[Rfam]
RNA sequence: CGUAUGGUGCUUGGCAUAAAAGGUAUGACCAAGUGGCGAUACGGCCCAUUAUUUGAGGU
Numbered sequence: 001c002g003u004a005u006g007g008u009g010c011u012u013g014g015c016a017u018a019a020a021a022g023g024u025a026u027g028a029c030c031a032a033g034u035g036g037c038g039a040u041a042c043g044g045c046c047c048a049u050u051a052u053u054u055g056a057g058g059u
Stems, first nucleotide, its partner, number of pairs: 001043005007037002011032004015027004

The record is a 59-nucleotide RNA sequence from Thalassotalea marina, which matches "L31-Gammaproteobacteria ribosomal protein leader" in Rfam. NCBI's taxonomy places the organism under Bacteria, Pseudomonadota, Gammaproteobacteria, Alteromonadales, Thalassotalea. On this family, see Eckert and Weinberg, BMC Microbiol 2020: "Discovery of 20 novel ribosomal leader candidates in bacteria and archaea".